[Rfam]
RNA sequence: AACUUAUCAAGAGUGGUGGAGGGACAGGCCCAGUGAAGCCCAGCAACCUCGAAUGAAGGUGCUAAUUCCUGCAGCAAGAGCUGAAAGAUAAGAU
Number, nucleotide and partner (000 for none) at each position: 001a094002a000003c092004u091005u090006a089007u088008c087009a000010a000011g000012a000013g041014u000015g040016g039017u038018g000019g000020a000021g031022g030023g029024a000025c071026a070027g069028g068029c023030c022031c021032a000033g000034u000035g000036a000037a000038g017039c016040c015041c013042a063043g062044c061045a060046a000047c059048c058049u000050c055051g000052a000053a000054u000055g050056a000057a000058g048059g047060u045061g044062c043063u042064a000065a000066u000067u086068c028069c027070u026071g025072c083073a082074g081075c080076a000077a000078g000079a000080g075081c074082u073083g072084a000085a000086a067087g008088a007089u006090a005091a004092g003093a000094u001
RNA: SAM riboswitch aptamer (S box leader)
Organism: Cerasibacillus quisquiliarum